Record summary: A member of the RNA family "Clostridiales-1 RNA" from Firmicutes bacterium CAG:194, 168 nucleotides long.
[Rfam]
RNA sequence: CGAUAUCAGGGUAUCAAAAACAAAAGCUAUCAUACUUGUAUGAUUGCGCUUUUGUUUUUGAUACCCGUCAAACAUGAGGAAGUAGCGAUUUGCAAGGCAAAUCUGCGAAUUCUGAAUGUUUGUAGAAUUGCGAGAGCAGCGUAGCUGCGGAACAAUUCGUAGGCAUCG
Numbered sequence: 001c002g003a004u005a006u007c008a009g010g011g012u013a014u015c016a017a018a019a020a021c022a023a024a025a026g027c028u029a030u031c032a033u034a035c036u037u038g039u040a041u042g043a044u045u046g047c048g049c050u051u052u053u054g055u056u057u058u059u060g061a062u063a064c065c066c067g068u069c070a071a072a073c074a075u076g077a078g079g080a081a082g083u084a085g086c087g088a089u090u091u092g093c094a095a096g097g098c099a100a101a102u103c104u105g106c107g108a109a110u111u112c113u114g115a116a117u118g119u120u121u122g123u124a125g126a127a128u129u130g131c132g133a134g135a136g137c138a139g140c141g142u143a144g145c146u147g148c149g150g151a152a153c154a155a156u157u158c159g160u161a162g163g164c165a166u167c168g
Stems, first nucleotide, its partner, number of pairs: 001168004006163002010065004016059012030043005069122007078113004085106002087103007125158006136148004

Source information: The source organism's lineage runs through Bacteria, Bacillati and Bacillota. A search with the family's covariance model found it, with a score of 110 bits.